[Rfam]
RNA sequence: UCGCGUCCGCAAUCCGGUUCAGCCGUGACGCGGAAGGUUUGUCAACCAGCUAAAGCUUCCCCGGAGGGAAGCGGAGGUCAGCG
Numbered sequence: 001u002c003g004c005g006u007c008c009g010c011a012a013u014c015c016g017g018u019u020c021a022g023c024c025g026u027g028a029c030g031c032g033g034a035a036g037g038u039u040u041g042u043c044a045a046c047c048a049g050c051u052a053a054a055g056c057u058u059c060c061c062c063g064g065a066g067g068g069a070a071g072c073g074g075a076g077g078u079c080a081g082c083g
Base pairs, nucleotide, nucleotide: 002083003082004081006034007033008032009031010030015025016024017023018022036047037046038045039044049078050077051076055072056071057070058069059068060067061066
Rfam assigns this 83-nucleotide RNA from Pulveribacter suum to the family "SucA RNA motif".
For this family Rfam cites "Identification of 22 candidate structured RNAs in bacteria using the CMfinder comparative genomics pipeline" (Weinberg et al., Nucleic Acids Res, 2007).
NCBI's taxonomy places the organism under Bacteria, Pseudomonadota, Burkholderiales, Comamonadaceae, Pulveribacter.
It scores 76 bits against the family's covariance model.
Its family is annotated with regulation of translation in the Gene Ontology.